Group II catalytic intron D1-D4-7: a 173-nucleotide RNA from Desulfonema limicola. The literature on the family includes a 2003 paper in Crit Rev Biochem Mol Biol by Lehmann and Schmidt, "Group II introns: structure and catalytic versatility of large natural ribozymes". From the family's description: Group II introns are found in rRNA, tRNA and mRNA of organelles in fungi, plants and protists, and also in mRNA in bacteria. Its family is annotated with Group II intron splicing in the Gene Ontology. The family has 244 seed sequences and 1,296 matches in Rfam 15.1. A search with the family's covariance model found it, with a score of 64 bits.
RNA sequence: CCUGUCUUAUUGCAGACAGUUUCCUACUCCGACAUGCACUUACACCGCUGGUGUAUAUUGUAUGAAGCUUGGAGGACAACGUGAGCAACGUGUCCGCAAGGUCUGGAGACAAAACCGUGAGGGGAAGUCAAAUCUGAAAUCCGGGGACACUAUACUUAAUUUCGGACUAAUGG
Number, nucleotide and partner (000 for none) at each position: 001c000002c019003u018004g017005u016006c015007u014008u000009a000010u000011u000012g000013c000014a007015g006016a005017c004018a003019g002020u000021u000022u000023c000024c000025u000026a000027c000028u073029c072030c071031g070032a069033c064034a063035u062036g061037c060038a059039c000040u057041u000042a000043c000044a000045c000046c000047g000048c000049u000050g000051g000052u000053g000054u000055a000056u000057a040058u000059u038060g037061u036062a035063u034064g033065a000066a000067g000068c000069u032070u031071g030072g029073a028074g000075g000076a000077c000078a000079a000080c000081g000082u000083g000084a000085g000086c000087a000088a000089c000090g000091u000092g103093u000094c101095c100096g000097c000098a000099a000100g095101g094102u000103c092104u000105g000106g129107a128108g000109a000110c000111a000112a000113a000114a000115c122116c121117g000118u000119g000120a000121g116122g115123g000124g000125a000126a000127g000128u107129c106130a000131a000132a000133u166134c165135u164136g163137a162138a161139a160140u159141c000142c000143g000144g000145g000146g000147a000148c000149a000150c000151u000152a000153u000154a000155c000156u000157u000158a000159a140160u139161u138162u137163c136164g135165g134166a133167c000168u000169a000170a000171u000172g000173g000